[Rfam]
Annotation
Rfam assigns this 75-nucleotide sequence from Cnephaeus nilssonii to the family "mir-9193 microRNA precursor family". It scores 64 bits against the family's covariance model. The family's consensus secondary structure was predicted with RNAalifold.
RNA sequence: CUUGUGGGGGGGGGGGUCCCUCAGCCCAGAUUGCGAGAGGGUGCAAGCCUGGCCGAGGGAUCCCACUGGUGUACA
Dot-bracket structure: ..((..(..((.((((((((((.(((..(.(((((......))))).)..))).)))))))))).))..).))..
Numbered sequence: 001c002u003u004g005u006g007g008g009g010g011g012g013g014g015g016g017u018c019c020c021u022c023a024g025c026c027c028a029g030a031u032u033g034c035g036a037g038a039g040g041g042u043g044c045a046a047g048c049c050u051g052g053c054c055g056a057g058g059g060a061u062c063c064c065a066c067u068g069g070u071g072u073a074c075a
Stems, first nucleotide, its partner, number of pairs: 003073002007070001010067002013064010024053003029048001031046005